Background:
The family of this 104-nucleotide RNA sequence from Eubacterium oxidoreducens is "TPP riboswitch aptamer (THI element)".

[Rfam]
RNA sequence: AGAAACGAUCAGGGGAGCCGAAAGGCUGAGAAAGGCAUAUAAUGCUUUGACCCUUAUUACCUGAUCCGGAUCAUACCGGCGUAGGGAGAUUGUGCAGAUUCAAU
Numbered sequence: 001a002g003a004a005a006c007g008a009u010c011a012g013g014g015g016a017g018c019c020g021a022a023a024g025g026c027u028g029a030g031a032a033a034g035g036c037a038u039a040u041a042a043u044g045c046u047u048u049g050a051c052c053c054u055u056a057u058u059a060c061c062u063g064a065u066c067c068g069g070a071u072c073a074u075a076c077c078g079g080c081g082u083a084g085g086g087a088g089a090u091u092g093u094g095c096a097g098a099u100u101c102a103a104u
Stems, first nucleotide, its partner, number of pairs: 006092005011054004016048001017026003033047005060085004066079004